[Rfam]
RNA: Plastid-ccsA-ndhD-1 3UTR RNA
Organism: Sesamum indicum
RNA sequence: GAACUGGCGAGAACCCGGUGAAUCACUACAAUAUUUGAUUCACCGGGUUCUCGCCA
Numbered sequence: 001g002a003a004c005u006g007g008c009g010a011g012a013a014c015c016c017g018g019u020g021a022a023u024c025a026c027u028a029c030a031a032u033a034u035u036u037g038a039u040u041c042a043c044c045g046g047g048u049u050c051u052c053g054c055c056a
Base pairs, nucleotide, nucleotide: 007054008053009052010051011050012049013048014047015046016045017044018043019042020041021040022039023038024037025036